[Rfam]
RNA: Purine riboswitch aptamer
Organism: Fusobacterium gonidiaformans
RNA sequence: AUUUAAAUGAAUAAACUAACUUGUAUAUACUUGUGUAUGUAUCGGGCAAGAGUCUCUACGGUUAACCGUUAUUAACCGCUACAAGUUAAAGAUAUAGAGCG
Numbered sequence: 001a002u003u004u005a006a007a008u009g010a011a012u013a014a015a016c017u018a019a020c021u022u023g024u025a026u027a028u029a030c031u032u033g034u035g036u037a038u039g040u041a042u043c044g045g046g047c048a049a050g051a052g053u054c055u056c057u058a059c060g061g062u063u064a065a066c067c068g069u070u071a072u073u074a075a076c077c078g079c080u081a082c083a084a085g086u087u088a089a090a091g092a093u094a095u096a097g098a099g100c101g
Stems, first nucleotide, its partner, number of pairs: 018087008030050005060077006